[Rfam]
The record is a 330-nucleotide RNA from Myotis lucifugus, which matches "Nuclear RNase P" in Rfam. The sequence is in the family's curated seed alignment. NCBI's taxonomy places the organism under Eukaryota, Eumetazoa, Boreoeutheria, Chiroptera, Myotis.
RNA sequence: GCGGAGGGAAGCUCAUUGGUGGGGCUACGCACUGAGUGCACCUCGUCACUCUACCCCAUGUCCCCUGGGAAGGUUUGAGACUAGGGCCAAGAGCGGCCCUAACAGGGCCCUCCCUGAGCUGCAGGGAGGUGAGUUCCCAGAGAAUGGGUCUCCGCGCGAGGGCAGACUGGGCAGGAGAUGCCACGGUCCCCGCCCUUGGGAGGGGCCUGGCAGAUGCCUCCUCAAGCAGAGCUUGGAAUAGACUCACAGCCAGCAAAGUGAGUUUAAUGGCUGAGGUGAGGCACUCCGCAAAGGGGCCUCAUAACCUAAUUCAGACUACUUUCCCCCCGC
Number, nucleotide and partner (000 for none) at each position: 001g330002c329003g328004g327005a000006g000007g324008g323009a322010a000011g000012c275013u274014c273015a272016u000017u270018g000019g000020u000021g065022g064023g063024g062025c000026u000027a000028c000029g000030c000031a000032c000033u000034g051035a050036g049037u048038g047039c045040a000041c000042c000043u000044c000045g039046u000047c038048a037049c036050u035051c034052u000053a000054c000055c000056c000057c000058a000059u000060g000061u000062c024063c023064c022065c021066u000067g000068g000069g000070a000071a000072g000073g000074u000075u314076u313077g312078a311079g310080a000081c000082u000083a000084g000085g251086g250087c249088c000089a000090a000091g000092a000093g000094c000095g109096g108097c107098c106099c105100u000101a000102a000103c000104a000105g099106g098107g097108c096109c095110c128111u127112c126113c125114c124115u123116g000117a000118g000119c000120u000121g000122c000123a115124g114125g113126g112127a111128g110129g247130u246131g245132a244133g243134u242135u241136c000137c000138c000139a000140g000141a000142g000143a000144a000145u000146g000147g000148g000149u000150c231151u230152c000153c000154g000155c000156g000157c000158g000159a000160g000161g000162g000163c000164a000165g000166a000167c000168u000169g000170g000171g000172c000173a000174g000175g000176a000177g000178a000179u000180g000181c000182c000183a000184c000185g000186g000187u000188c000189c000190c000191c000192g000193c000194c000195c000196u000197u000198g000199g000200g000201a000202g000203g000204g000205g000206c000207c000208u000209g000210g000211c000212a000213g000214a000215u000216g000217c000218c000219u000220c000221c000222u000223c000224a000225a000226g000227c000228a000229g000230a151231g150232c000233u000234u000235g000236g000237a000238a000239u000240a000241g135242a134243c133244u132245c131246a130247c129248a000249g087250c086251c085252a000253g000254c000255a000256a000257a000258g000259u000260g000261a000262g000263u000264u000265u000266a000267a000268u000269g000270g017271c000272u015273g014274a013275g012276g302277u301278g300279a299280g298281g297282c296283a000284c000285u000286c000287c000288g000289c000290a000291a000292a000293g000294g000295g000296g282297c281298c280299u279300c278301a277302u276303a000304a000305c000306c000307u000308a000309a000310u079311u078312c077313a076314g075315a000316c000317u000318a000319c000320u000321u000322u009323c008324c007325c000326c000327c004328c003329g002330c001
Source information
It is annotated as a ribozyme. Clan: RNaseP clan. Rfam 15.1 lists 3,848 matches to the family in 1,862 species.